[Rfam]
RNA sequence: GGCGGAAUAGCUCAGUUGGCUAGAGCAUACGGUUCAUACCCGUAGUGUCAUGGGUUCAAAUCCCUUUUCCGCUA
Numbered sequence: 001g002g003c004g005g006a007a008u009a010g011c012u013c014a015g016u017u018g019g020c021u022a023g024a025g026c027a028u029a030c031g032g033u034u035c036a037u038a039c040c041c042g043u044a045g046u047g048u049c050a051u052g053g054g055u056u057c058a059a060a061u062c063c064c065u066u067u068u069c070c071g072c073u074a
Base pairs, nucleotide, nucleotide: 001073002072003071004070005069006068007067010026011025012024013023028044029043030042031041032040050066052064053063054062
RNA: tRNA
Organism: Clostridium sp. CAG:230